[Rfam]
RNA: MIR7510 microRNA precursor family
RNA sequence: AGCGCCGCUAAAGAUCAUGGUCUUUAGCGGCGUUUGUAGCAAAAGCGCCGCUAAAGGUCAUGGUCUUUAGCGGCGUUU
Numbered sequence: 001a002g003c004g005c006c007g008c009u010a011a012a013g014a015u016c017a018u019g020g021u022c023u024u025u026a027g028c029g030g031c032g033u034u035u036g037u038a039g040c041a042a043a044a045g046c047g048c049c050g051c052u053a054a055a056g057g058u059c060a061u062g063g064u065c066u067u068u069a070g071c072g073g074c075g076u077u078u
Base pairs, nucleotide, nucleotide: 003075004074005073006072007071008070009069010068011067012066013065014064015063016062017061018060020059021057022056023055024054025053026052027051028050029049030048031047032046033045